[Rfam]
RNA sequence: UCUCUGAUGAUGAAUAAUAAAGAUAUAACUUUCGUUCUUCUGAGAUUUUUCUAUGCGGAAGAAAAUUAUUGGAGACCUGAACUGAGGAGAC
Numbered sequence: 001u002c003u004c005u006g007a008u009g010a011u012g013a014a015u016a017a018u019a020a021a022g023a024u025a026u027a028a029c030u031u032u033c034g035u036u037c038u039u040c041u042g043a044g045a046u047u048u049u050u051c052u053a054u055g056c057g058g059a060a061g062a063a064a065a066u067u068a069u070u071g072g073a074g075a076c077c078u079g080a081a082c083u084g085a086g087g088a089g090a091c
Stems, first nucleotide, its partner, number of pairs: 002089004
Dot-bracket structure: .((((................................................................................))))..
Overview:
Rfam assigns this 91-nucleotide sequence from Trifolium pratense to the family "Small nucleolar RNA Z159/U59". The match comes from Rfam's covariance-model search (67 bits). On this family, see Chen et al., Nucleic Acids Res 2003: "The high diversity of snoRNAs in plants: identification and comparative study of 120 snoRNA genes from Oryza sativa". Rfam 15.1 lists 1,401 matches to the family in 272 species. The family is grouped with related families in Rfam's "SNORD59 clan". By type it is a C/D-box small nucleolar RNA. The family's consensus secondary structure was predicted with PFOLD.